The family of this 48-nucleotide RNA from Afipia sp. P52-10 is "Guanidine-II riboswitch aptamer (mini-ykkC)". It scores 34 bits against the family's covariance model. Simpler in structure and has fewer highly conserved nucleotide positions than the ykkC-yxkD leader. Despite this each of its two stem-loop structures directly bind free guanidine. Therefore, mini-ykkC RNA motif represents a distinct class of guanidine-sensing RNAs. Its crystal structure was also determined. The family has 72 seed sequences and 1,589 matches in Rfam 15.1.

RNA sequence: UCGCGGGGACGGCCUCGCCCGGAUUCGCGUCAUGCAGGGACGACCCUG
Numbered sequence: 001u002c003g004c005g006g007g008g009a010c011g012g013c014c015u016c017g018c019c020c021g022g023a024u025u026c027g028c029g030u031c032a033u034g035c036a037g038g039g040a041c042g043a044c045c046c047u048g
Base pairs, nucleotide, nucleotide: 003018004017005016006015007014008013035048036047037046038045039044